[Rfam]
Bacterial large signal recognition particle RNA: a 268-nucleotide RNA from Paenibacillus sp. NFR01.

Nucleotides: 268
Stems, first nucleotide, its partner, number of pairs: 001268006009058003012030004017025001019023001035055005064261007073252004081244004086239004093232002098228005105222001107218003116212008124201006130192002134189004138183006149174004157166003
Number, partner (000 for none) and nucleotide at each position: 001268c002267c003266g004265u005264g006263c007000u008000a009058g010057a011056u012030g013029g014028g015027g016000a017025g018000g019023u020000a021000g022000c023019g024000g025017u026000g027015c028014c029013c030012u031000g032000u033000a034000a035055c036054u037053c038052g039051c040000a041000a042000c043000c044000c045000g046000c047000u048000g049000u050000a051039g052038c053037g054036a055035g056011a057010u058009u059000g060000a061000a062000u063000u064261c065260c066259u067258g068257u069256u070255a071000g072000c073252g074251g075250u076249g077000c078000c079000g080000u081244c082243g083242a084241u085000g086239u087238g088237a089236g090000g091000u092000u093232u094231g095000g096000u097000c098228c099227c100226u101225g102224u103000g104000g105222g106000c107218u108217g109216u110000g111000u112000u113000g114000a115000c116212g117211g118210u119209u120208g121207g122206g123205u124201c125200c126199u127198c128197c129196g130192c131191a132000a133000u134189g135188a136187g137186c138183g139182c140181u141180u142179g143178u144000g145000a146000a147000c148000c149174u150173g151172g152171u153000c154000a155000g156000g157166u158165c159164c160000g161000g162000a163000a164159g165158g166157a167000a168000g169000c170000a171152g172151c173150c174149a175000u176000a177000a178143g179142c180141g181140a182139g183138u184000u185000u186137g187136c188135u189134c190000u191131u192130g193000u194000g195000c196129c197128g198127g199126a200125g201124g202000g203000u204000g205123g206122c207121c208120u209119a210118g211117c212116c213000c214000g215000a216109g217108c218107a219000g220000u221000u222105c223000c224102g225101c226100a227099g228098g229000a230000u231094u232093g233000c234000c235000g236089c237088u238087c239086g240000g241084a242083u243082c244081g245000c246000g247000g248000u249076c250075a251074u252073c253000a254000a255070u256069a257068a258067c259066a260065g261064g262000u263006g264005c265004a266003c267002g268001g

For this family Rfam cites "SRPDB: Signal Recognition Particle Database" (Rosenblad et al., Nucleic Acids Res, 2003).
The signal recognition particle (SRP) is a universally conserved ribonucleoprotein involved in the co-translational targeting of proteins to membranes.
It scores 201 bits against the family's covariance model.